[Rfam]
RNA sequence: GGAGGCGUCCUGGGCCUGGUGGCCCGCCCGGUCUUCAAAACCGGUGGCGCGCCAACCGCGCGCGGCGGGUUCGAUUCCCGUCCGCCUCC
Number, nucleotide and partner (000 for none) at each position: 001g089002g088003a087004g086005g085006c084007g083008u000009c000010c000011u026012g025013g024014g023015c022016c021017u000018g000019g000020u000021g016022g015023c014024c013025c012026g011027c000028c044029c043030g042031g041032u040033c000034u000035u000036c000037a000038a000039a000040a032041c031042c030043g029044g028045u000046g000047g063048c062049g061050c060051g059052c000053c000054a000055a000056c000057c000058g000059c051060g050061c049062g048063c047064g000065g000066c080067g079068g078069g077070u000071u000072c000073g000074a000075u000076u000077c069078c068079c067080g066081u000082c000083c007084g006085c005086c004087u003088c002089c001

Shown here is an 89-nucleotide RNA sequence from Dankookia rubra, a member of the family "Selenocysteine transfer RNA". The match comes from Rfam's covariance-model search (76 bits). Clan: tRNA clan. For this family Rfam cites "Eukaryotic selenocysteine tRNA has the 9/4 secondary structure" (Mizutani and Goto, FEBS Lett, 2000). Rfam links the family to the GO term triplet codon-amino acid adaptor activity. Pairs were carried over by alignment from the consensus structure, which is taken from published work.